mir-8517 microRNA precursor family: a 108-nucleotide RNA from Plutella xylostella. A search with the family's covariance model found it, with a score of 78 bits. Rfam links the family to the GO terms miRNA-mediated post-transcriptional gene silencing and RISC complex. Pairs were carried over by alignment from the consensus structure, which was predicted with RNAalifold.
RNA sequence: UUGAAGUCAGUUUUAACUAAUAAACUGUUUUGUCCCUCUUUGUCAAUGAAUAAAUUUUUCUUUGUCGGAGAGGGACAAAUCAGUUUAUUAGUUAAAACGUUCUGUAAC
Numbered sequence: 001u002u003g004a005a006g007u008c009a010g011u012u013u014u015a016a017c018u019a020a021u022a023a024a025c026u027g028u029u030u031u032g033u034c035c036c037u038c039u040u041u042g043u044c045a046a047u048g049a050a051u052a053a054a055u056u057u058u059u060c061u062u063u064g065u066c067g068g069a070g071a072g073g074g075a076c077a078a079a080u081c082a083g084u085u086u087a088u089u090a091g092u093u094a095a096a097a098c099g100u101u102c103u104g105u106a107a108c
Stems, first nucleotide, its partner, number of pairs: 001107003005103002011097017029069004034064001049059002052056001